[Rfam]
RNA sequence: AAAUCAGAUGAUGAGAUUGGAUUAAAAUUUCUCACGACGGUCGUCUGAGAGACACCUUAAAAGUGUCUGAUUGAUGCAUCAAUCCAAUGUUUCUGAUGGUU
Number, nucleotide and partner (000 for none) at each position: 001a101002a100003a000004u098005c000006a000007g000008a000009u000010g000011a000012u000013g000014a000015g000016a000017u000018u000019g000020g000021a000022u000023u000024a000025a000026a000027a000028u000029u000030u000031c000032u000033c000034a000035c000036g000037a000038c000039g000040g000041u000042c000043g000044u000045c000046u000047g000048a000049g000050a000051g000052a064053c063054a000055c000056c000057u000058u000059a000060a000061a000062a000063g053064u052065g000066u000067c000068u000069g000070a000071u000072u000073g000074a000075u000076g000077c000078a000079u000080c000081a000082a000083u000084c000085c000086a000087a000088u000089g000090u000091u000092u000093c000094u000095g000096a000097u000098g004099g000100u002101u001
Source information:
A member of the RNA family "Small nucleolar RNA Z161/Z228" from Gossypium australe, 101 nucleotides long. Gene Ontology terms of the family: RNA processing and nucleolus. The family's consensus secondary structure was predicted with PFOLD. A reference for the family is Chen et al. (2003), "The high diversity of snoRNAs in plants: identification and comparative study of 120 snoRNA genes from Oryza sativa", Nucleic Acids Res. The family is grouped with related families in Rfam's "SNORD35 clan". By type it is a C/D-box small nucleolar RNA. The match comes from Rfam's covariance-model search (71 bits).